[Rfam]
RNA sequence: GUGUCCUUUUAAGUUUGCUACAGUAUCUUAAGAGGUUAACAUAGAAUGGUAAAAUAAGUCUCCAUAAAACCCAGAGAAAAGAUCACAGAACUGUUAGAUCCUGUCUGGAGUCACAGCA
Numbered sequence: 001g002u003g004u005c006c007u008u009u010u011a012a013g014u015u016u017g018c019u020a021c022a023g024u025a026u027c028u029u030a031a032g033a034g035g036u037u038a039a040c041a042u043a044g045a046a047u048g049g050u051a052a053a054a055u056a057a058g059u060c061u062c063c064a065u066a067a068a069a070c071c072c073a074g075a076g077a078a079a080a081g082a083u084c085a086c087a088g089a090a091c092u093g094u095u096a097g098a099u100c101c102u103g104u105c106u107g108g109a110g111u112c113a114c115a116g117c118a
Base pairs, nucleotide, nucleotide: 002051003050004049005048007046008045009044010043015039016038017037019035021032058112060110061109062108063107064106071097073095080092081091083090
About this RNA:
A member of the RNA family "Small nucleolar RNA SNORA26" from Chrysochloris asiatica, 118 nucleotides long. The match comes from Rfam's covariance-model search (89 bits). The snoRNA HBI-6 belong to the H/ACA family of snoRNAs, guiding the pseudouridylation of position U4522 if the 28S rRNA. HBI-6 is the human orthologue of mouse MBI-6 snoRNA. Rfam classes the family as an H/ACA-box small nucleolar RNA. Taxonomically the source falls in Chrysochloris (Eukaryota, Craniata, Amniota, Theria). The family is grouped with related families in Rfam's "SNORA27 clan". Pairs were carried over by alignment from the consensus structure, which was predicted with RNAalifold. A reference for the family is Huttenhofer et al. (2001), "RNomics: an experimental approach that identifies 201 candidates for novel, small, non-messenger RNAs in mouse", EMBO J.